Rfam assigns this 100-nucleotide RNA sequence from Gasterosteus aculeatus to the family "Vault RNA". The base pairs follow the family's consensus structure, which is taken from published work. The organism belongs to Gasterosteus, within Eukaryota. This family of RNAs are found as part of the enigmatic vault ribonucleoprotein complex.

RNA sequence: GCAUCGGUUUAGCUCAGUGGUUACUUCCAAACAUGAGUUUCUUUCUUCACGGGCUCUUCUGGGGCCCAUCGAUCGACCACGGGCGCUGUCCGAUGCUUUU
Numbered sequence: 001g002c003a004u005c006g007g008u009u010u011a012g013c014u015c016a017g018u019g020g021u022u023a024c025u026u027c028c029a030a031a032c033a034u035g036a037g038u039u040u041c042u043u044u045c046u047u048c049a050c051g052g053g054c055u056c057u058u059c060u061g062g063g064g065c066c067c068a069u070c071g072a073u074c075g076a077c078c079a080c081g082g083g084c085g086c087u088g089u090c091c092g093a094u095g096c097u098u099u100u
Base pairs, nucleotide, nucleotide: 002095003094004093005092006091007090012084013083014082015081017080018079019078020077026076027075029073